[Rfam]
RNA sequence: AUUUGCCUUGGCGAUGGAGUUCGCCUUCAACCGCUCCGGCCACCAUCGUAGCUGAUGACUCCUGUUAACAU
Numbered sequence: 001a002u003u004u005g006c007c008u009u010g011g012c013g014a015u016g017g018a019g020u021u022c023g024c025c026u027u028c029a030a031c032c033g034c035u036c037c038g039g040c041c042a043c044c045a046u047c048g049u050a051g052c053u054g055a056u057g058a059c060u061c062c063u064g065u066u067a068a069c070a071u
Stems, first nucleotide, its partner, number of pairs: 010025004016062006033052003
Rfam assigns this 71-nucleotide sequence from Fodinibius salipaludis to the family "Fluoride riboswitch aptamer (crcB RNA motif)".
For this family Rfam cites "Fluoride ion encapsulation by Mg2+ ions and phosphates in a fluoride riboswitch" (Ren et al., Nature, 2012).
A search with the family's covariance model found it, with a score of 52 bits.